Rfam assigns this 103-nucleotide RNA sequence from Spirosoma telluris to the family "TPP riboswitch aptamer (THI element)". A search with the family's covariance model found it, with a score of 66 bits. Lineage of the source: Bacteria > Pseudomonadati > Bacteroidota > Cytophagaceae > Spirosoma. Rfam describes the family as follows. Vitamin B(1) in its active form thiamin pyrophosphate (TPP) is an essential coenzyme that is synthesised by coupling of pyrimidine and thiazole moieties in bacteria. The base pairs follow the family's consensus structure, which is taken from published work.
RNA sequence: CAACAACUUUAGGGGUGUCAGUAUCAAAUCUGGACUGACUGAGAGAAUACCCUCACUACCUGAUGCAGUUUGUACUGCCGUAGGGAAAAGUUAACGAGACGCA
Numbered sequence: 001c002a003a004c005a006a007c008u009u010u011a012g013g014g015g016u017g018u019c020a021g022u023a024u025c026a027a028a029u030c031u032g033g034a035c036u037g038a039c040u041g042a043g044a045g046a047a048u049a050c051c052c053u054c055a056c057u058a059c060c061u062g063a064u065g066c067a068g069u070u071u072g073u074a075c076u077g078c079c080g081u082a083g084g085g086a087a088a089a090g091u092u093a094a095c096g097a098g099a100c101g102c103a
Stems, first nucleotide, its partner, number of pairs: 006091005011053004016047001017039005059084004065078004